[Rfam]
RNA sequence: UUAAAUGAGAGUUUGAUCCUGGCUCAGGACGAACGCUGGCGGCGUGCCUAAUACAUGCAAGUAGAACGCUGAAGCUUGGUGCUUGCACCGAGCGGAGGAGUUGCGAACGGGUGAGUAACGCGUAGGUAACCUGCCUGGUAGCGGGGGAUAACUAUUGGAAACGAUAGCUAAUACCGCAUAAUAGUGCUUACUGCAUGGUAAGCAUUUGAAAGAUGCAAUUGCAUCACUACCAGAUGGACCUGCGUUGUAUUAGCUAGUUGGUGAGGUAAAGGCUCACCAAGGCGACGAUACAUAGCCGACCUGAGAGGGUGAUCGGCCACACUGGGACUGAGACACGGCCCAGACUCCUACGGGAGGCAGCAGUAGGGAAUCUUCGGCAAUGGGGGCAACCCUGACCGAGCAACGCCGCGUGAGUGAAGAAGGUUUUCGGAUCGUAAAGCUCUGUUGUAAGAGAAGAACAGCGAUGGGAGUGGAAAAUCCAUUGUAUGACGGUAUCUUACCAGAAAGGGACGGCUAACUACGUGCCAGCAGCCGCGGUAAUACGUAGGUCCCGAGCGUUGUCCGGAUUUAUUG
Numbered sequence: 001u002u003a004a005a006u007g008a009g010a011g012u013u014u015g016a017u018c019c020u021g022g023c024u025c026a027g028g029a030c031g032a033a034c035g036c037u038g039g040c041g042g043c044g045u046g047c048c049u050a051a052u053a054c055a056u057g058c059a060a061g062u063a064g065a066a067c068g069c070u071g072a073a074g075c076u077u078g079g080u081g082c083u084u085g086c087a088c089c090g091a092g093c094g095g096a097g098g099a100g101u102u103g104c105g106a107a108c109g110g111g112u113g114a115g116u117a118a119c120g121c122g123u124a125g126g127u128a129a130c131c132u133g134c135c136u137g138g139u140a141g142c143g144g145g146g147g148a149u150a151a152c153u154a155u156u157g158g159a160a161a162c163g164a165u166a167g168c169u170a171a172u173a174c175c176g177c178a179u180a181a182u183a184g185u186g187c188u189u190a191c192u193g194c195a196u197g198g199u200a201a202g203c204a205u206u207u208g209a210a211a212g213a214u215g216c217a218a219u220u221g222c223a224u225c226a227c228u229a230c231c232a233g234a235u236g237g238a239c240c241u242g243c244g245u246u247g248u249a250u251u252a253g254c255u256a257g258u259u260g261g262u263g264a265g266g267u268a269a270a271g272g273c274u275c276a277c278c279a280a281g282g283c284g285a286c287g288a289u290a291c292a293u294a295g296c297c298g299a300c301c302u303g304a305g306a307g308g309g310u311g312a313u314c315g316g317c318c319a320c321a322c323u324g325g326g327a328c329u330g331a332g333a334c335a336c337g338g339c340c341c342a343g344a345c346u347c348c349u350a351c352g353g354g355a356g357g358c359a360g361c362a363g364u365a366g367g368g369a370a371u372c373u374u375c376g377g378c379a380a381u382g383g384g385g386g387c388a389a390c391c392c393u394g395a396c397c398g399a400g401c402a403a404c405g406c407c408g409c410g411u412g413a414g415u416g417a418a419g420a421a422g423g424u425u426u427u428c429g430g431a432u433c434g435u436a437a438a439g440c441u442c443u444g445u446u447g448u449a450a451g452a453g454a455a456g457a458a459c460a461g462c463g464a465u466g467g468g469a470g471u472g473g474a475a476a477a478u479c480c481a482u483u484g485u486a487u488g489a490c491g492g493u494a495u496c497u498u499a500c501c502a503g504a505a506a507g508g509g510a511c512g513g514c515u516a517a518c519u520a521c522g523u524g525c526c527a528g529c530a531g532c533c534g535c536g537g538u539a540a541u542a543c544g545u546a547g548g549u550c551c552c553g554a555g556c557g558u559u560g561u562c563c564g565g566a567u568u569u570a571u572u573g
Stems, first nucleotide, its partner, number of pairs: 009025005027563004032559006039409006045402002047367001052365003056362003061104003066101002069097002075092007111320003120245008130237002135233007143177001145175002152167006183206010212225005246292003253283003258280008295317004299310004322343005345356004373399001375398003381394005412442004422433004446504001447500006456490001462484007507552005518547005528535002